Shown here is a 354-nucleotide RNA from Allomeiothermus silvanus, a member of the family "transfer-messenger RNA". The family's consensus secondary structure is taken from published work. Lineage of the source: Bacteria > Deinococcota > Thermales > Thermaceae > Allomeiothermus silvanus. From the family's description: Bacterial tmRNA, also known as 10Sa RNA or SsrA, is named for its dual tRNA and mRNA-like properties. Its role is to liberate the mRNA from a stalled ribosome. To accomplish this part of the tmRNA is used as a reading frame that ends in a translation stop signal. The broken mRNA is replaced in the ribosome by the tmRNA and translation of the tmRNA leads to addition of a proteolysis tag to the incomplete protein enabling recognition by a protease. Recently a number of permuted tmRNA genes have been found encoded in two parts. tmRNAs have been identified in eubacteria and some chloroplasts but are absent from archaeal and eukaryote nuclear genomes.
[Rfam]
RNA sequence: GGGCGCGACCUGGCUUCGACGGGGGUCGCCAAAGGUGUGGUGGCGUGCCGAGGUGGUCGGUGGCCUCGUAAAACACCGGCAAAGCCAUAACUGGCAACACUCAGCGUUCUUACGCUCUCGCUGCUUAAGUCAGCGACGUUCCUAGCAAGCCCCGCCGUUGGCUCGGCUAGCGAACGACCUAAAAACGGCUAGCCCGCGCGAGGCUCCGUAAGCGUUGGGCGAAACUUUACGGAGCUUGGCCUAGAGUCCCUGCUGAUGGGGAAACUCCAGGCGAGAAUCUAAACAUCAGCUACGCACGUAGAAGCCCACUGGAGGGACUUUCGGACGGGAGUUCGAUUCUCCCCGCGUCCACCA
Number, nucleotide and partner (000 for none) at each position: 001g350002g349003g348004c347005g346006c345007g344008a000009c000010c000011u000012g000013g000014c000015u000016u000017c000018g000019a000020c323021g322022g321023g320024g319025g318026u317027c316028g000029c314030c000031a000032a000033a000034g310035g309036u308037g307038u000039g306040g305041u304042g000043g000044c298045g297046u296047g295048c294049c068050g067051a066052g065053g064054u000055g000056g080057u079058c078059g077060g076061u075062g074063g000064c053065c052066u051067c050068g049069u000070a000071a000072a000073a000074c062075a061076c060077c059078g058079g057080c056081a000082a000083a000084g000085c000086c000087a000088u000089a000090a000091c000092u000093g000094g000095c000096a000097a000098c000099a000100c000101u000102c000103a000104g000105c000106g000107u000108u000109c000110u000111u000112a000113c000114g000115c000116u000117c000118u136119c135120g134121c133122u132123g131124c000125u000126u000127a000128a000129g000130u000131c123132a122133g121134c120135g119136a118137c176138g175139u174140u173141c172142c000143u169144a168145g167146c166147a000148a163149g162150c161151c160152c000153c000154g189155c188156c187157g186158u185159u184160g151161g150162c149163u148164c000165g000166g146167c145168u144169a143170g000171c000172g141173a140174a139175c138176g137177a000178c000179c000180u000181a000182a000183a000184a159185a158186c157187g156188g155189c154190u000191a000192g220193c219194c218195c217196g216197c214198g213199c212200g000201a000202g236203g235204c234205u233206c232207c231208g000209u000210a000211a000212g199213c198214g197215u000216u196217g195218g194219g193220c192221g000222a000223a000224a000225c000226u000227u000228u000229a000230c000231g207232g206233a205234g204235c203236u202237u000238g000239g272240c271241c270242u269243a000244g267245a266246g265247u264248c261249c260250c259251u000252g290253c289254u288255g287256a000257u283258g000259g250260g249261g248262a000263a000264a247265c246266u245267c244268c000269a242270g241271g240272c239273g000274a000275g000276a000277a000278u000279c000280u000281a000282a000283a257284c000285a000286u000287c255288a254289g253290c252291u000292a000293c000294g048295c047296a046297c045298g044299u000300a000301g000302a000303a000304g041305c040306c039307c037308a036309c035310u034311g000312g000313a000314g029315g000316g027317a026318c025319u024320u023321u022322c021323g020324g000325a000326c000327g343328g342329g341330a340331g339332u000333u000334c000335g000336a000337u000338u000339c331340u330341c329342c328343c327344c007345g006346c005347g004348u003349c002350c001351a000352c000353c000354a000